[Rfam]
RNA sequence: CAUCCCGCAGCAAUGCGAUGAUGGUCUAGUCAGAAGUCAGCAGAUGCCAUAGUACCCUGUUUCUCUAUUACGAACAAGGGAAGGGC
Numbered sequence: 001c002a003u004c005c006c007g008c009a010g011c012a013a014u015g016c017g018a019u020g021a022u023g024g025u026c027u028a029g030u031c032a033g034a035a036g037u038c039a040g041c042a043g044a045u046g047c048c049a050u051a052g053u054a055c056c057c058u059g060u061u062u063c064u065c066u067a068u069u070a071c072g073a074a075c076a077a078g079g080g081a082a083g084g085g086c
Base pairs, nucleotide, nucleotide: 003020006017007016008015009014036045037044038043046086047085048084055079056078058076059075060074061073062072
Group II catalytic intron D1-D4-1: an 86-nucleotide sequence from Sphingobacterium paucimobilis. About the family: Group II introns are found in rRNA, tRNA and mRNA of organelles in fungi, plants and protists, and also in mRNA in bacteria. The literature on the family includes a 2001 paper in Trends Genet by Bonen and Vogel, "The ins and outs of group II introns". The match comes from Rfam's covariance-model search (54 bits).